[Rfam]
RNA sequence: CGAAGAAAAUGAUGAAAGAGAUGUGAAAGGGUGAUGAUCUUUCGAUUUAAAAUGAUCAGAAUAAUAUCUCUUCGCUACGUUCUUUCUGAUUCUAAA
Numbered sequence: 001c002g003a004a005g006a007a008a009a010u011g012a013u014g015a016a017a018g019a020g021a022u023g024u025g026a027a028a029g030g031g032u033g034a035u036g037a038u039c040u041u042u043c044g045a046u047u048u049a050a051a052a053u054g055a056u057c058a059g060a061a062u063a064a065u066a067u068c069u070c071u072u073c074g075c076u077a078c079g080u081u082c083u084u085u086c087u088g089a090u091u092c093u094a095a096a
Stems, first nucleotide, its partner, number of pairs: 004093004
Description:
A member of the RNA family "Small nucleolar RNA R32/R81/Z41" from Malus domestica, 96 nucleotides long. Rfam classes the family as a C/D-box small nucleolar RNA. The literature on the family includes a 2001 paper in J Mol Biol by Barneche et al., "Identification of 66 box C/D snoRNAs in Arabidopsis thaliana: extensive gene duplications generated multiple isoforms predicting new ribosomal RNA 2'-O-methylation sites". Rfam 15.1 lists 238 matches to the family in 139 species. It scores 70 bits against the family's covariance model. Taxonomically the source falls in Malus (Eukaryota, Embryophyta, Magnoliopsida, Gunneridae).